[Rfam]
Nucleotides: 475
Stems, first nucleotide, its partner, number of pairs: 002475006008468004014409006022073001023071006038053006077460003081457004091106006322380002329372006411444003415440004
Number, partner (000 for none) and nucleotide at each position: 001000u002475c003474c004473u005472c006471g007470c008468u009467c010466a011465a012000a013000g014409a015408a016407u017406c018405g019404c020000a021000u022073u023071c024070a025069a026068a027067g028066c029000u030000u031000a032000c033000g034000a035000a036000c037000a038053g039052g040051g041050c042049a043048u044000u045000u046000a047000a048043a049042u050041g051040c052039u053038c054000g055000u056000a057000c058000c059000a060000a061000u062000a063000u064000a065000u066028g067027c068026u069025u070024u071023g072000g073022g074000a075000g076000a077460a078459a079458g080000u081457c082456c083455c084454c085000g086000g087000a088000c089000g090000c091106c092105c093104u094103g095102a096101c097000g098000u099000a100000a101096g102095u103094c104093a105092g106091g107000c108000a109000c110000u111000g112000c113000g114000g115000a116000a117000a118000c119000g120000c121000g122000c123000u124000g125000c126000c127000a128000u129000a130000g131000a132000a133000g134000c135000a136000c137000u138000u139000c140000a141000u142000a143000g144000c145000a146000g147000c148000u149000g150000a151000u152000g153000c154000c155000c156000u157000c158000u159000u160000g161000g162000c163000u164000a165000c166000c167000u168000u169000c170000g171000c172000g173000c174000u175000g176000g177000c178000u179000c180000c181000g182000a183000c184000c185000u186000u187000c188000g189000u190000u191000g192000a193000a194000c195000c196000g197000u198000c199000u200000g201000c202000a203000c204000u205000c206000u207000u208000c209000a210000g211000u212000c213000u214000u215000c216000u217000g218000u219000c220000c221000c222000a223000a224000a225000u226000g227000u228000a229000c230000c231000g232000a233000u234000u235000u236000u237000u238000a239000u240000c241000a242000g243000u244000g245000c246000c247000g248000g249000a250000g251000c252000a253000g254000c255000u256000u257000u258000g259000g260000g261000a262000u263000g264000a265000c266000g267000a268000u269000a270000u271000g272000a273000g274000u275000c276000c277000c278000a279000u280000g281000u282000u283000u284000u285000g286000g287000c288000a289000u290000c291000g292000a293000a294000g295000a296000u297000u298000u299000c300000g301000c302000c303000g304000u305000u306000u307000g308000g309000g310000g311000g312000g313000u314000u315000g316000c317000g318000u319000c320000g321000a322380g323379g324000a325000g326000g327000u328000u329372u330371c331370u332369u333368g334367g335000g336000g337000a338000a339000a340000c341000a342000a343000u344000g345000g346000g347000a348000a349000u350000u351000a352000g353000c354000g355000g356000u357000g358000g359000g360000a361000a362000u363000c364000u365000g366000g367334c368333c369332a370331a371330g372329g373000a374000g375000g376000u377000u378000g379323c380322c381000g382000u383000u384000c385000g386000u387000c388000g389000a390000g391000a392000u393000u394000c395000u396000a397000c398000a399000g400000c401000u402000a403000u404019g405018c406017g407016a408015u409014u410000g411444c412443u413442c414000u415440c416439c417438u418437g419000u420000c421000u422000c423000u424000g425000a426000u427000c428000c429000u430000u431000c432000g433000g434000g435000g436000c437418u438417g439416g440415g441000u442413g443412a444411g445000u446000a447000a448000c449000u450000c451000g452000a453000u454084g455083g456082g457081g458079c459078u460077u461000a462000u463000u464000c465011u466010u467009g468008a469000g470007g471006c472005g473004a474003g475002g
This 475-nucleotide sequence from Microsporum canis belongs to the Rfam family "RNase MRP". On this family, see Li et al., RNA 2002: "Phylogenetic analysis of the structure of RNase MRP RNA in yeasts".